[Rfam]
A member of the RNA family "Small nucleolar RNA SNORD116" from Erinaceus europaeus, 94 nucleotides long. The source organism's lineage runs through Eukaryota, Metazoa, Chordata, Vertebrata and Erinaceus. The family's RNA type in Rfam is C/D-box small nucleolar RNA.
RNA sequence: GGAUCAAUGAUGACUCCCCUCAAAAGCAUUCCUUGGAAAGCUGAACAAAAUGAGUGAGACUCACCACCAUCAACCUCAUUGGAAACUGAGGUCC
Numbered sequence: 001g002g003a004u005c006a007a008u009g010a011u012g013a014c015u016c017c018c019c020u021c022a023a024a025a026g027c028a029u030u031c032c033u034u035g036g037a038a039a040g041c042u043g044a045a046c047a048a049a050a051u052g053a054g055u056g057a058g059a060c061u062c063a064c065c066a067c068c069a070u071c072a073a074c075c076u077c078a079u080u081g082g083a084a085a086c087u088g089a090g091g092u093c094c
Stems, first nucleotide, its partner, number of pairs: 001094005027056005033048003